[Rfam]
RNA sequence: CCCCGGACUGAAGUCCGGGCUAUGUUAUACCGUCCCUACGGGACU
Dot-bracket structure: (((.((((....)))))))............(((((...))))).
Numbered sequence: 001c002c003c004c005g006g007a008c009u010g011a012a013g014u015c016c017g018g019g020c021u022a023u024g025u026u027a028u029a030c031c032g033u034c035c036c037u038a039c040g041g042g043a044c045u
Stems, first nucleotide, its partner, number of pairs: 001019003005016004032044005
Record summary
This 45-nucleotide sequence from Gracilimonas mengyeensis belongs to the Rfam family "Acido-Lenti-1 RNA". Lineage of the source: Bacteria > Pseudomonadati > Balneolales > Balneolaceae > Gracilimonas.